[Rfam]
RNA sequence: UUAAAUAAUUUAGAGACUUCAGCUUGUAAACUUUAAAAAAUUGAAGACUUCGACUUGAAUACUUGAAGAAUUUGAAGACUUCAACU
Numbered sequence: 001u002u003a004a005a006u007a008a009u010u011u012a013g014a015g016a017c018u019u020c021a022g023c024u025u026g027u028a029a030a031c032u033u034u035a036a037a038a039a040a041u042u043g044a045a046g047a048c049u050u051c052g053a054c055u056u057g058a059a060u061a062c063u064u065g066a067a068g069a070a071u072u073u074g075a076a077g078a079c080u081u082c083a084a085c086u
Base pairs, nucleotide, nucleotide: 001084002083004081005080009076010075011074012073013072014071017068018067019066020065021064025059027057028056032053033052035050036049
Dot-bracket structure: ((.((...((((((..(((((...(.((...((.((............)).))..)).)....)))))..))))))...)).))..